The record is a 96-nucleotide RNA, which matches "DUF1874 RNA" in Rfam. The sequence is in the family's curated seed alignment.
[Rfam]
RNA sequence: GUUAGCCCAGGUCCAAGUCUGGAGAUGGUCAUCCAAGGUAAGUGUGUCCAUAGGACACCGCCAUUCCCAAAAGAGGCUUGGUCUUAGGGUGGAGGC
Numbered sequence: 001g002u003u004a005g006c007c008c009a010g011g012u013c014c015a016a017g018u019c020u021g022g023a024g025a026u027g028g029u030c031a032u033c034c035a036a037g038g039u040a041a042g043u044g045u046g047u048c049c050a051u052a053g054g055a056c057a058c059c060g061c062c063a064u065u066c067c068c069a070a071a072a073g074a075g076g077c078u079u080g081g082u083c084u085u086a087g088g089g090u091g092g093a094g095g096c
Stems, first nucleotide, its partner, number of pairs: 006089003009085001016078004021068002024065006042059001044058005